The record is a 78-nucleotide sequence from Esox lucius, which matches "Small nucleolar RNA SNORD74" in Rfam. Gene Ontology terms of the family: RNA processing and nucleolus. On this family, see Galardi et al., Mol Cell Biol 2002: "Purified box C/D snoRNPs are able to reproduce site-specific 2'-O-methylation of target RNA in vitro". By type it is a C/D-box small nucleolar RNA.

[Rfam]
RNA sequence: AAUGUCUGAAAUGAUGAUAUAUGUUGGUAGGGACAUCUGAAACACUUGAGGAAACGCCAACUUUACUGACUAGACAUG
Numbered sequence: 001a002a003u004g005u006c007u008g009a010a011a012u013g014a015u016g017a018u019a020u021a022u023g024u025u026g027g028u029a030g031g032g033a034c035a036u037c038u039g040a041a042a043c044a045c046u047u048g049a050g051g052a053a054a055c056g057c058c059a060a061c062u063u064u065a066c067u068g069a070c071u072a073g074a075c076a077u078g
Stems, first nucleotide, its partner, number of pairs: 002077004